The family of this 86-nucleotide sequence from Durio zibethinus is "Small nucleolar RNA Z122". The source organism's lineage runs through Eukaryota, Tracheophyta, malvids, Malvaceae and Durio. It scores 61 bits against the family's covariance model. The family's consensus secondary structure was predicted with PFOLD. The family has 23 seed sequences and 822 matches in Rfam 15.1.

RNA sequence: AUUGGGAAAUGAUGACAGCUUAAUUGCUGGAUAGUAUCUGAGCAAGCUUUGAAGAAUUGUUUUUUGCACGUCAGUCUGAUCCCAAA
Number, nucleotide and partner (000 for none) at each position: 001a000002u085003u084004g083005g082006g081007a080008a000009a000010u000011g000012a000013u000014g000015a000016c000017a000018g000019c000020u000021u000022a000023a000024u000025u000026g000027c000028u000029g000030g000031a000032u000033a000034g000035u000036a000037u000038c000039u000040g000041a000042g000043c000044a000045a000046g000047c000048u000049u000050u000051g000052a000053a000054g000055a000056a000057u000058u000059g000060u000061u000062u000063u000064u000065u000066g000067c000068a000069c000070g000071u000072c000073a000074g000075u000076c000077u000078g000079a000080u007081c006082c005083c004084a003085a002086a000